[Rfam]
Shown here is a 69-nucleotide RNA sequence from Leptospirillum ferrooxidans, a member of the family "DUF3800-IX RNA". Actinobacteria, Firmicutes (1 example), Nitrospirae, Proteobacteria, Verrucomicrobia (1 example).
RNA sequence: GGCCCAAUCCUGAUUAGUCACCUUGAUGGUGUGCGUCUCCUUAUUUAAGGAGUAGGGGUUGGGUUUUUA
Numbered sequence: 001g002g003c004c005c006a007a008u009c010c011u012g013a014u015u016a017g018u019c020a021c022c023u024u025g026a027u028g029g030u031g032u033g034c035g036u037c038u039c040c041u042u043a044u045u046u047a048a049g050g051a052g053u054a055g056g057g058g059u060u061g062g063g064u065u066u067u068u069a
Stems, first nucleotide, its partner, number of pairs: 001065011017034002019031004037052005

NCBI's taxonomy places the organism under Bacteria, Pseudomonadati, Nitrospirales, Leptospirillum sp. Group I, Leptospirillum ferrooxidans.